Annotation: Shown here is a 67-nucleotide RNA from Pedobacter polaris, a member of the family "Flavo-1 RNA". The family's RNA type in Rfam is small RNA. The match comes from Rfam's covariance-model search (43 bits). The base pairs follow the family's consensus structure, which is taken from published work.
RNA sequence: AUUUAAACCUGAUUGAAAUGUAAAGCCCCGAUUUUCUUCGGGCUUGCAAUGAAAAGCAGGACUGCUU
Numbered sequence: 001a002u003u004u005a006a007a008c009c010u011g012a013u014u015g016a017a018a019u020g021u022a023a024a025g026c027c028c029c030g031a032u033u034u035u036c037u038u039c040g041g042g043c044u045u046g047c048a049a050u051g052a053a054a055a056g057c058a059g060g061a062c063u064g065c066u067u
Base pairs, nucleotide, nucleotide: 009059010058011057013055014054018050019049023045024044025043026042028041029040030039031038